Nucleotides: 217
Stems, first nucleotide, its partner, number of pairs: 001063007010042002013039002017035004043052003066203004070079003084198007092190003099133002103126004108121003111213001114210001115208003135180009147171002150168001154164002
Number, partner (000 for none) and nucleotide at each position: 001063g002062u003061c004060a005059a006058u007057g008000a009000c010042c011041c012000g013039c014038c015000g016000c017035u018034a019033g020032a021000u022000c023000u024000u025000u026000g027000c028000a029000g030000a031000u032020u033019c034018u035017a036000a037000c038014g039013g040000g041011g042010g043052c044051u045050u046000g047000u048000a049000a050045a051044a052043g053000c054000c055000u056000a057007c058006a059005u060004u061003g062002a063001c064000c065000a066203g067202c068201c069200c070079a071078c072077c073000c074000a075000c076000g077072g078071g079070u080000a081000a082000a083000c084198g085197a086196u087195a088194u089193c090192a091000c092190g093189g094188u095000c096000a097000c098000g099133a100132c101000a102000c103126c104125c105124c106123a107000a108121g109120a110119u111213g112000c113000g114210u115208g116207c117206c118000a119110g120109u121108u122000c123106u124105g125104g126103g127000c128000a129000a130000c131000u132100g133099u134000c135180g136179c137178u138177c139176a140175a141174a142173a143172u144000u145000a146000a147171a148170c149000a150168g151000c152000a153000a154164g155163g156000a157000c158000g159000g160000g161000a162000a163155c164154c165000a166000a167000a168150c169000a170148g171147u172143g173142u174141u175140u176139u177138g178137a179136g180135c181000c182000g183000a184000a185000c186000a187000a188094g189093c190092c191000a192090u193089g194088a195087u196086a197085u198084c199000c200069g201068g202067g203066c204000g205000a206117g207116g208115c209000a210114a211000a212000c213111u214000u215000u216000a217000c